[Rfam]
Annotation:
Shown here is a 68-nucleotide RNA, a member of the family "mir-153 microRNA precursor family". Gene Ontology terms of the family: RISC complex and miRNA-mediated post-transcriptional gene silencing. The literature on the family includes a 2005 paper in Genes Dev by Chen et al., "The developmental miRNA profiles of zebrafish as determined by small RNA cloning". The sequence is in the family's curated seed alignment.
RNA sequence: GCGUCAUUUUUGUGAUUUGCAGCUAGUAAUCUGGCUCCAGUUGCAUAGUCACAAAAGUGAUCGUUGGC
Number, nucleotide and partner (000 for none) at each position: 001g064002c063003g062004u060005c059006a058007u057008u056009u055010u054011u053012g052013u051014g050015a049016u048017u000018u045019g044020c043021a042022g041023c040024u039025a000026g000027u000028a000029a000030u000031c000032u000033g000034g000035c000036u000037c000038c000039a024040g023041u022042u021043g020044c019045a018046u000047a000048g016049u015050c014051a013052c012053a011054a010055a009056a008057g007058u006059g005060a004061u000062c003063g002064u001065u000066g000067g000068c000